The family of this 80-nucleotide sequence from Falsiroseomonas stagni is "terC RNA". The family's RNA type in Rfam is cis-regulatory element. The family has 129 seed sequences and 1,112 matches in Rfam 15.1. The organism belongs to Falsiroseomonas stagni, within Bacteria.
RNA sequence: GCGCCGAUCCGGGCCCCUCUGGCGUUCGGGCGCCGCGCGCCUUAGGCCCGCCGCGCCCGCCGCGAUGUCGGAUCGCCAGA
Numbered sequence: 001g002c003g004c005c006g007a008u009c010c011g012g013g014c015c016c017c018u019c020u021g022g023c024g025u026u027c028g029g030g031c032g033c034c035g036c037g038c039g040c041c042u043u044a045g046g047c048c049c050g051c052c053g054c055g056c057c058c059g060c061c062g063c064g065a066u067g068u069c070g071g072a073u074c075g076c077c078a079g080a
Base pairs, nucleotide, nucleotide: 006074007073008072009071010070011069012068022063023062024061026059